[Rfam]
RNA: mir-22 microRNA precursor family
RNA sequence: GGCUACCGCGCAGCAGUUCUUCAGUGGCAUGCUUUACGUCUCCCCUCUCGCAACUAAAGCUGCCAGUUGAAGAACUGUUGGCCGUGGC
Numbered sequence: 001g002g003c004u005a006c007c008g009c010g011c012a013g014c015a016g017u018u019c020u021u022c023a024g025u026g027g028c029a030u031g032c033u034u035u036a037c038g039u040c041u042c043c044c045c046u047c048u049c050g051c052a053a054c055u056a057a058a059g060c061u062g063c064c065a066g067u068u069g070a071a072g073a074a075c076u077g078u079u080g081g082c083c084g085u086g087g088c
Base pairs, nucleotide, nucleotide: 005085006084011080012079017074018073019072020071021070022069026064027063028062031060032059033058034057035056036055